[Rfam]
Overview: Shown here is a 134-nucleotide RNA from Hipposideros armiger, a member of the family "U11 spliceosomal RNA". The literature on the family includes a 1988 paper in Proc Natl Acad Sci U S A by Montzka and Steitz, "Additional low-abundance human small nuclear ribonucleoproteins: U11, U12, etc". Rfam classes the family as a spliceosomal small nuclear RNA. The match comes from Rfam's covariance-model search (118 bits). The base pairs follow the family's consensus structure, which is taken from published work.
RNA sequence: AAAAAGGGCUUCUGUCGUGAGUGGCACACGCAGGGCAGCUUGAUUGUUCUGCGUGCGGAAUCCACAUUAAGAGAUUUCGGAAGCAUAAUGUUUUGGUAUCUGGGCAGCUGGUGAUCGUUGGUCCUGGCUCCCUA
Numbered sequence: 001a002a003a004a005a006g007g008g009c010u011u012c013u014g015u016c017g018u019g020a021g022u023g024g025c026a027c028a029c030g031c032a033g034g035g036c037a038g039c040u041u042g043a044u045u046g047u048u049c050u051g052c053g054u055g056c057g058g059a060a061u062c063c064a065c066a067u068u069a070a071g072a073g074a075u076u077u078c079g080g081a082a083g084c085a086u087a088a089u090g091u092u093u094u095g096g097u098a099u100c101u102g103g104g105c106a107g108c109u110g111g112u113g114a115u116c117g118u119u120g121g122u123c124c125u126g127g128c129u130c131c132c133u134a
Base pairs, nucleotide, nucleotide: 008084009083010082011081012080013026014025015024016023017022027055028054029053030052031051032050033049034048035047036046037045038044056079057078058077059076060075061074062073102132103131104130107128108127109126110125111124113123114122115121116120